[Rfam]
Notes:
This 95-nucleotide RNA from Triticum aestivum belongs to the Rfam family "MIR1120/MIR1122 microRNA precursor family".
RNA sequence: CUACUCCCUCCGUCCCAUAAUAUAAGAAUGUUUUUCAAGCUAACAAGCUAUGUUGGCUUGAAAAACAUUCUUAUAUUAUGGGACGGAGGGAGUAG
Numbered sequence: 001c002u003a004c005u006c007c008c009u010c011c012g013u014c015c016c017a018u019a020a021u022a023u024a025a026g027a028a029u030g031u032u033u034u035u036c037a038a039g040c041u042a043a044c045a046a047g048c049u050a051u052g053u054u055g056g057c058u059u060g061a062a063a064a065a066c067a068u069u070c071u072u073a074u075a076u077u078a079u080g081g082g083a084c085g086g087a088g089g090g091a092g093u094a095g
Stems, first nucleotide, its partner, number of pairs: 003093003007089005013083005019077027